This 417-nucleotide part of an RNA from Chlorella variabilis belongs to the Rfam family "Eukaryotic large subunit ribosomal RNA". The family's consensus secondary structure is taken from published work.
RNA sequence: ACGAUUCGAGGGCCUUGCGCCUCCCAGCCGGAUAUGCGAUCAAUAAGCGGAGGAAAAGAAACUAACUAGGAUUCCCUUAGUAACGGCGAGCGAACCGGGAAGAGCCCAACUUGAAAAUCUCCAGCCUCCGGCUGGCGAAUUGUAGUCUAGAGAAGUGCUCUCUGUCCCAGUCUGGUCCCAAGUCCCCUGGAAAGGGGCGUCAGAGAGGGUGAGAACCCCGUUGGGAUCGGAGCCUGGGUCUCCACGAGACGCUUUCGUAGAGUCGGGUUGUUUGGGAAUGCAGCCCAAAGCAGGUGGUAAAUCCCAUCUAAGGCUAAAUACAGACGGGAGACCGAUAGCGAACAAGUACCGCGAGGGAAAGAUGAAAAGAACUUUGAAAAGAGAGUUAAAAAGUACUUGAAAUUGUUGAGAGGGAAG
Numbered sequence: 001a002c003g004a005u006u007c008g009a010g011g012g013c014c015u016u017g018c019g020c021c022u023c024c025c026a027g028c029c030g031g032a033u034a035u036g037c038g039a040u041c042a043a044u045a046a047g048c049g050g051a052g053g054a055a056a057a058g059a060a061a062c063u064a065a066c067u068a069g070g071a072u073u074c075c076c077u078u079a080g081u082a083a084c085g086g087c088g089a090g091c092g093a094a095c096c097g098g099g100a101a102g103a104g105c106c107c108a109a110c111u112u113g114a115a116a117a118u119c120u121c122c123a124g125c126c127u128c129c130g131g132c133u134g135g136c137g138a139a140u141u142g143u144a145g146u147c148u149a150g151a152g153a154a155g156u157g158c159u160c161u162c163u164g165u166c167c168c169a170g171u172c173u174g175g176u177c178c179c180a181a182g183u184c185c186c187c188u189g190g191a192a193a194g195g196g197g198c199g200u201c202a203g204a205g206a207g208g209g210u211g212a213g214a215a216c217c218c219c220g221u222u223g224g225g226a227u228c229g230g231a232g233c234c235u236g237g238g239u240c241u242c243c244a245c246g247a248g249a250c251g252c253u254u255u256c257g258u259a260g261a262g263u264c265g266g267g268u269u270g271u272u273u274g275g276g277a278a279u280g281c282a283g284c285c286c287a288a289a290g291c292a293g294g295u296g297g298u299a300a301a302u303c304c305c306a307u308c309u310a311a312g313g314c315u316a317a318a319u320a321c322a323g324a325c326g327g328g329a330g331a332c333c334g335a336u337a338g339c340g341a342a343c344a345a346g347u348a349c350c351g352c353g354a355g356g357g358a359a360a361g362a363u364g365a366a367a368a369g370a371a372c373u374u375u376g377a378a379a380a381g382a383g384a385g386u387u388a389a390a391a392a393g394u395a396c397u398u399g400a401a402a403u404u405g406u407u408g409a410g411a412g413g414g415a416a417g
Base pairs, nucleotide, nucleotide: 024052025050027048028047035039062069063068073100074099075098076097084090103315104314105313106312111145112144113143115141116140118138119137121135122134123133124132152256153255154253155252156251157250159249160248161247162246164240166238167237168236169235170234172230173229174228175227176226177225178224182198184197185196186195187194201205208218209217265286266285267284268283269282270281271280292309293308294307295306296305349356350355372383373382374381375380
NCBI's taxonomy places the organism under Eukaryota, Viridiplantae, core chlorophytes, Chlorellaceae, Chlorella. Gene Ontology terms of the family: structural constituent of ribosome and ribosome.